The record is a 59-nucleotide RNA from Peptococcaceae bacterium CEB3, which matches "Fluoride riboswitch aptamer (crcB RNA motif)" in Rfam. It scores 37 bits against the family's covariance model. Lineage of the source: Bacteria > Bacillota > Clostridia > Eubacteriales > Peptococcaceae.
RNA sequence: AAAAACCCAGGCGAUGGGGCUCGCUUAUUUGCCUGAAGGCUGAUGGCUCCUACCUUCAA
Numbered sequence: 001a002a003a004a005a006c007c008c009a010g011g012c013g014a015u016g017g018g019g020c021u022c023g024c025u026u027a028u029u030u031g032c033c034u035g036a037a038g039g040c041u042g043a044u045g046g047c048u049c050c051u052a053c054c055u056u057c058a059a
Base pairs, nucleotide, nucleotide: 010025011024012023013022016050017049018048019047020046021045031040032039033038